[Rfam]
RNA: Purine riboswitch aptamer
RNA sequence: ACCGUCCGUUUAGAAUGAUCUCGUAUAAAUCCGGGGAUAUGGCCCGGAAGUCUCUACCUGAAAACCGUAAAUUUUCGGACUACGAGUGAAUACGCCAUGAAG
Numbered sequence: 001a002c003c004g005u006c007c008g009u010u011u012a013g014a015a016u017g018a019u020c021u022c023g024u025a026u027a028a029a030u031c032c033g034g035g036g037a038u039a040u041g042g043c044c045c046g047g048a049a050g051u052c053u054c055u056a057c058c059u060g061a062a063a064a065c066c067g068u069a070a071a072u073u074u075u076c077g078g079a080c081u082a083c084g085a086g087u088g089a090a091u092a093c094g095c096c097a098u099g100a101a102g
Base pairs, nucleotide, nucleotide: 020086021085022084023083024082025081030048031047032046033045034044035043058078059077060076061075062074063073064072
Dot-bracket structure: ...................((((((....((((((.......)))))).........(((((((.......)))))))..))))))................